[Rfam]
RNA sequence: CAGCAUCCUCUGAUAGACCACGAGCAAUUUUCCUGUUGCUCUCUGGUUUGCACUGAGAUGCAAAAGUAACUUCCUUGCGCUUUCUGCCUGCCUGCUUGUGGCAGUUCAGAUUGAAUUAGGGAAUACAAUG
Numbered sequence: 001c002a003g004c005a006u007c008c009u010c011u012g013a014u015a016g017a018c019c020a021c022g023a024g025c026a027a028u029u030u031u032c033c034u035g036u037u038g039c040u041c042u043c044u045g046g047u048u049u050g051c052a053c054u055g056a057g058a059u060g061c062a063a064a065a066g067u068a069a070c071u072u073c074c075u076u077g078c079g080c081u082u083u084c085u086g087c088c089u090g091c092c093u094g095c096u097u098g099u100g101g102c103a104g105u106u107c108a109g110a111u112u113g114a115a116u117u118a119g120g121g122a123a124u125a126c127a128a129u130g
Base pairs, nucleotide, nucleotide: 003061004060005059006058007057011052012051014050015049016048017047018046019045022041023040024039025038026037027036028035072122073121074120075119076118077117080113083110084109085108086107088104089103090102091101092100
Rfam assigns this 130-nucleotide RNA from Bambusicola thoracicus to the family "Small nucleolar RNA SNORA31". Its family is annotated with RNA processing and nucleolus in the Gene Ontology. ACA31 (SNORA31) belongs to the H/ACA class of snoRNAs which are thought to guide the sites of modification of uridines to pseudouridines. ACA31 is predicted to guide the pseudouridylation of U3713 in 28S rRNA and U218 in 18S rRNA. This family includes the mouse homologue snoMBI-161. The match comes from Rfam's covariance-model search (99 bits). A reference for the family is Huttenhofer et al. (2001), "RNomics: an experimental approach that identifies 201 candidates for novel, small, non-messenger RNAs in mouse", EMBO J. Rfam classes the family as an H/ACA-box small nucleolar RNA. Lineage of the source: Eukaryota > Dipnotetrapodomorpha > Amniota > Sauropsida > Bambusicola.